Description:
Rfam assigns this 109-nucleotide RNA sequence from Salvia splendens to the family "MIR390 microRNA precursor family". For this family Rfam cites "Expression of Arabidopsis MIRNA genes" (Xie et al., Plant Physiol, 2005). The source organism's lineage runs through Eukaryota, Streptophyta, Euphyllophyta, Mesangiospermae and core Calosphace. The family has 16 seed sequences and 649 matches in Rfam 15.1.
RNA sequence: AUGGAGAGCCCGUGAAGCUCAGGAGGGAUAGCGCCGCUGUUUGUCCCCGCAGCCGAUAAACGUAGAUCUUGAUUGGCGCUAUCCAUCCUGAGUUUCAUAGGUUUUUUUC
Number, nucleotide and partner (000 for none) at each position: 001a000002u000003g000004g000005a000006g000007a000008g000009c000010c100011c000012g000013u000014g000015a000016a094017g093018c092019u091020c090021a089022g088023g087024a086025g000026g084027g083028a082029u081030a080031g079032c078033g077034c076035c075036g000037c000038u000039g000040u000041u000042u000043g000044u000045c000046c000047c000048c000049g000050c000051a000052g000053c000054c000055g000056a000057u000058a000059a000060a000061c000062g000063u000064a000065g000066a000067u000068c000069u000070u000071g000072a000073u000074u000075g035076g034077c033078g032079c031080u030081a029082u028083c027084c026085a000086u024087c023088c022089u021090g020091a019092g018093u017094u016095u000096c000097a000098u000099a000100g010101g000102u000103u000104u000105u000106u000107u000108u000109c000